RNA sequence: GGAAGUGUAUUCUUUAGUGUGAUGUUACUACUGUCCAUAGAUCGCUAGCUUUAGUUAGAGGAUCUGCUCAGCUCGUGACGUCACGCGCUCGUUGUGUGGUCAGCUCCCUGUAGUGUGCGCGGUCCCCGCUCGCCCGCGCGGCUGCGACGGCCGGACGGCGCAUGCUCCUCGGGCUACCUUAACCUUACGCGGUUUCAAUUAACUCGUUAGCUUAGCUCCGGUUAAAGUCUUCGAGCACUUCCAUGCAGCGGGCGGCGAGUAAUCUCGGAUGCCAGCUUUUUUGGUCAAUUUAGAUUUUUUUGUCAACUUUUGGUACCUUCCGUAAGUUCCAAUAUAUAAUAAUCUUACGCGGUUUCAAUUAACUCGUUAGCUUAGCUCCGGUUAAAGUCUUCGAGCACUUCCAUGCAGCGGGCGGCGAGUAAUCUCGGAUGCCAGCUUUUUUG
Numbered sequence: 001g002g003a004a005g006u007g008u009a010u011u012c013u014u015u016a017g018u019g020u021g022a023u024g025u026u027a028c029u030a031c032u033g034u035c036c037a038u039a040g041a042u043c044g045c046u047a048g049c050u051u052u053a054g055u056u057a058g059a060g061g062a063u064c065u066g067c068u069c070a071g072c073u074c075g076u077g078a079c080g081u082c083a084c085g086c087g088c089u090c091g092u093u094g095u096g097u098g099g100u101c102a103g104c105u106c107c108c109u110g111u112a113g114u115g116u117g118c119g120c121g122g123u124c125c126c127c128g129c130u131c132g133c134c135c136g137c138g139c140g141g142c143u144g145c146g147a148c149g150g151c152c153g154g155a156c157g158g159c160g161c162a163u164g165c166u167c168c169u170c171g172g173g174c175u176a177c178c179u180u181a182a183c184c185u186u187a188c189g190c191g192g193u194u195u196c197a198a199u200u201a202a203c204u205c206g207u208u209a210g211c212u213u214a215g216c217u218c219c220g221g222u223u224a225a226a227g228u229c230u231u232c233g234a235g236c237a238c239u240u241c242c243a244u245g246c247a248g249c250g251g252g253c254g255g256c257g258a259g260u261a262a263u264c265u266c267g268g269a270u271g272c273c274a275g276c277u278u279u280u281u282u283g284g285u286c287a288a289u290u291u292a293g294a295u296u297u298u299u300u301u302g303u304c305a306a307c308u309u310u311u312g313g314u315a316c317c318u319u320c321c322g323u324a325a326g327u328u329c330c331a332a333u334a335u336a337u338a339a340u341a342a343u344c345u346u347a348c349g350c351g352g353u354u355u356c357a358a359u360u361a362a363c364u365c366g367u368u369a370g371c372u373u374a375g376c377u378c379c380g381g382u383u384a385a386a387g388u389c390u391u392c393g394a395g396c397a398c399u400u401c402c403a404u405g406c407a408g409c410g411g412g413c414g415g416c417g418a419g420u421a422a423u424c425u426c427g428g429a430u431g432c433c434a435g436c437u438u439u440u441u442u443g
Stems, first nucleotide, its partner, number of pairs: 001402008019084005031071003036066002040064004045058003411433003
This 443-nucleotide RNA from Plutella xylostella belongs to the Rfam family "Arthropod 7SK RNA". The match comes from Rfam's covariance-model search (62 bits). Rfam 15.1 lists 229 matches to the family in 137 species. It is annotated as a non-coding RNA gene. The base pairs follow the family's consensus structure, which is taken from published work.